[Rfam]
Nucleotides: 095
Base pairs, nucleotide, nucleotide: 010029011028012026013025015024041052042051044049056071057070058069062080063079064078065077066076067075
Number, partner (000 for none) and nucleotide at each position: 001000c002000a003000a004000a005000g006000a007000c008000u009000c010029g011028g012026u013025a014000a015024g016000u017000c018000g019000u020000a021000a022000a023000a024015c025013u026012a027000g028011c029010c030000c031000u032000g033000g034000u035000c036000g037000g038000g039000a040000u041052g042051g043000u044049c045000u046000u047000u048000a049044g050000a051042c052041c053000c054000c055000u056071g057070c058069g059000u060000u061000u062080c063079u064078u065077a066076g067075u068000u069058c070057g071056u072000a073000a074000a075067a076066c077065u078064a079063a080062g081000u082000g083000g084000u085000g086000g087000a088000g089000u090000c091000a092000a093000u094000u095000u
Rfam assigns this 95-nucleotide RNA sequence to the family "wcaG RNA".
By type it is a cis-regulatory element.
It is one of the family's seed sequences.
The family's consensus secondary structure is taken from published work.